[Rfam]
RNA sequence: UUUUAUCCACAACGGCUUCCUGAAGUGGAUCGACAUUUAAACUGGAGCA
Dot-bracket structure: ....((((((..(([[[.[[))..)))))).............]]]]].
A member of the RNA family "SAM/SAH riboswitch aptamer" from Octadecabacter arcticus, 49 nucleotides long.
Pairs were carried over by alignment from the consensus structure, which is taken from published work.
It is one of the family's seed sequences.
Its family is annotated with regulation of gene expression and S-adenosylmethionine metabolic process in the Gene Ontology.
Taxonomically the source falls in Octadecabacter arcticus (Bacteria, Alphaproteobacteria, Rhodobacterales, Octadecabacter).